[Rfam]
RNA sequence: CGUCUCCUCCACUUCUUUCUAAGAAUUGGAUUUAGCCGGCUCUCUGAGCCGGCUUUUUUUU
Dot-bracket structure: .......((((.(((.......))).))))...((((((((.....)))))))).......
Numbered sequence: 001c002g003u004c005u006c007c008u009c010c011a012c013u014u015c016u017u018u019c020u021a022a023g024a025a026u027u028g029g030a031u032u033u034a035g036c037c038g039g040c041u042c043u044c045u046g047a048g049c050c051g052g053c054u055u056u057u058u059u060u061u
Stems, first nucleotide, its partner, number of pairs: 008030004013025003034054008